[Rfam]
RNA sequence: UCUGACAAAAUCACUUGGGGUCUCCUGUGGCCUCUGGUGCGAUAACUGUGCUGACAGCAGAGGGAGCAUUAAACUCAUUGCCCAGGGGAAAGUGUGGGCAGUGAUACCCAUGUUCCUAUAAUC
Numbered sequence: 001u002c003u004g005a006c007a008a009a010a011u012c013a014c015u016u017g018g019g020g021u022c023u024c025c026u027g028u029g030g031c032c033u034c035u036g037g038u039g040c041g042a043u044a045a046c047u048g049u050g051c052u053g054a055c056a057g058c059a060g061a062g063g064g065a066g067c068a069u070u071a072a073a074c075u076c077a078u079u080g081c082c083c084a085g086g087g088g089a090a091a092g093u094g095u096g097g098g099c100a101g102u103g104a105u106a107c108c109c110a111u112g113u114u115c116c117u118a119u120a121a122u123c
Base pairs, nucleotide, nucleotide: 005049006048007047008043012039013038014037019032020031021030022029063116065114066113067112068111069110075104076103077102078101079100083094084093
RNA: Small nucleolar RNA ACA64